[Rfam]
RNA sequence: GGUCACGAGUGCCAGCGCGAAGCCCCGGCUCGCUGGACGGCAACCCUCCUCCGCGGCGGGGUGCCCCGGGUGAUGACCGGGCCGCCGCGACACCCGCAGUCGGCAAGCGCGGAUC
Numbered sequence: 001g002g003u004c005a006c007g008a009g010u011g012c013c014a015g016c017g018c019g020a021a022g023c024c025c026c027g028g029c030u031c032g033c034u035g036g037a038c039g040g041c042a043a044c045c046c047u048c049c050u051c052c053g054c055g056g057c058g059g060g061g062u063g064c065c066c067c068g069g070g071u072g073a074u075g076a077c078c079g080g081g082c083c084g085c086c087g088c089g090a091c092a093c094c095c096g097c098a099g100u101c102g103g104c105a106a107g108c109g110c111g112g113a114u115c
Base pairs, nucleotide, nucleotide: 001078002077003076004075009038012036013035014034015033016032021030022029039065040064041063044061045060046059048056049055081104082103083102084101085099087097088096089095
The record is a 115-nucleotide RNA, which matches "SAM (S-adenosyl methionine) riboswitch aptamer" in Rfam. The match comes from Rfam's covariance-model search (95 bits). Its Rfam clan is "SAM clan".